[Rfam]
RNA sequence: GAACAUUGAGGAUAGAACAGGCAGCUAUCGCACCCUUGUGGUCUGAAAGAGAUGUGGAAAGGUCACUCCACCAAUGUUC
Dot-bracket structure: ((((((((..(((((....[[[..))))).(..((....)).......)....(((((...]]]..)))))))))))))
Rfam assigns this 79-nucleotide RNA to the family "skipping-rope RNA". The sequence is in the family's curated seed alignment. Rfam classes the family as a small RNA.